[Rfam]
RNA: Purine riboswitch aptamer
RNA sequence: UAAUAACAUUUAUCUUUAUUUCAUAUAAUUCUCAUAAUAUGGAUGAGAAGUUUCUACUAAUGACCGAUAAUCAUUGUCUAUGAAGAAAGUGUAUCUAGGG
Numbered sequence: 001u002a003a004u005a006a007c008a009u010u011u012a013u014c015u016u017u018a019u020u021u022c023a024u025a026u027a028a029u030u031c032u033c034a035u036a037a038u039a040u041g042g043a044u045g046a047g048a049a050g051u052u053u054c055u056a057c058u059a060a061u062g063a064c065c066g067a068u069a070a071u072c073a074u075u076g077u078c079u080a081u082g083a084a085g086a087a088a089g090u091g092u093a094u095c096u097a098g099g100g
Stems, first nucleotide, its partner, number of pairs: 019085007029049007058076006